[Rfam]
RNA sequence: UUGCACUGAUGACGUCUUAGGACACCUUUGGAUUACCCAUGAAAACAAACUGUUUUACUUCUGAGCAAC
Numbered sequence: 001u002u003g004c005a006c007u008g009a010u011g012a013c014g015u016c017u018u019a020g021g022a023c024a025c026c027u028u029u030g031g032a033u034u035a036c037c038c039a040u041g042a043a044a045a046c047a048a049a050c051u052g053u054u055u056u057a058c059u060u061c062u063g064a065g066c067a068a069c
Base pairs, nucleotide, nucleotide: 001068002067003066004065
RNA: Small nucleolar RNA SNORD58
Organism: Anabas testudineus